[Rfam]
RNA sequence: CCAAAAAGAAACAGGAGCGCUCAUAUAGGUUCGCUGGGAAGGGUGCGAACGUCUCUACGGAGCCGCCGAAAGGCUCUGCUAUGGGUGUCUGGCCGGUGGGC
Number, nucleotide and partner (000 for none) at each position: 001c000002c000003a000004a000005a000006a000007a000008g000009a000010a000011a000012c000013a000014g000015g000016a000017g000018c087019g086020c085021u084022c083023a082024u081025a080026u000027a000028g000029g050030u049031u048032c047033g046034c045035u000036g000037g000038g000039a000040a000041g000042g000043g000044u000045g034046c033047g032048a031049a030050c029051g000052u000053c000054u000055c000056u000057a000058c000059g077060g076061a075062g074063c073064c072065g000066c000067c000068g000069a000070a000071a000072g064073g063074c062075u061076c060077u059078g000079c000080u025081a024082u023083g022084g021085g020086u019087g018088u000089c000090u000091g000092g000093c000094c000095g000096g000097u000098g000099g000100g000101c000

Shown here is a 101-nucleotide RNA from Oscillibacter sp. CAG:155, a member of the family "Purine riboswitch aptamer". It scores 41 bits against the family's covariance model. Lineage of the source: Bacteria > Bacillati > Clostridia > Oscillospiraceae > Oscillibacter. Rfam describes the family as follows. Riboswitches are metabolite binding domains within certain messenger RNAs that serve as precision sensors for their corresponding targets. Allosteric rearrangement of mRNA structure is mediated by ligand binding, and this results in modulation of gene expression. A class of riboswitches that selectively recognises guanine and becomes saturated at concentrations as low as 5 nM. In Bacillus subtilis, this mRNA motif is located on at least five separate transcriptional units that together encode 17 genes that are mostly involved in purine transport and purine nucleotide biosynthesis. It has also been shown that some members of this family are specific for adenine instead. Hence this family are termed purine riboswitches.